Small nucleolar RNA SNORD46: a 109-nucleotide sequence from Etheostoma spectabile.
About the family: U40 is a C/D box small nucleolar RNA, also known as snoZ153 in plants.
Rfam links the family to the GO terms nucleolus and RNA processing.
It scores 67 bits against the family's covariance model.
By type it is a C/D-box small nucleolar RNA.
Lineage of the source: Eukaryota > Metazoa > Eumetazoa > Perciformes > Oligocephalus.
RNA sequence: AUCGUGGGUGAUGAAAACGUGACCUUAGGUAUGUCUUUUUUUGAGCCGUUUUGGUUCAAAGCUUUUGACUUACCAAUGUUAGGACUUGUCAUAGUUACACUGACACGCU
Numbered sequence: 001a002u003c004g005u006g007g008g009u010g011a012u013g014a015a016a017a018c019g020u021g022a023c024c025u026u027a028g029g030u031a032u033g034u035c036u037u038u039u040u041u042u043g044a045g046c047c048g049u050u051u052u053g054g055u056u057c058a059a060a061g062c063u064u065u066u067g068a069c070u071u072a073c074c075a076a077u078g079u080u081a082g083g084a085c086u087u088g089u090c091a092u093a094g095u096u097a098c099a100c101u102g103a104c105a106c107g108c109u
Stems, first nucleotide, its partner, number of pairs: 001109001003107004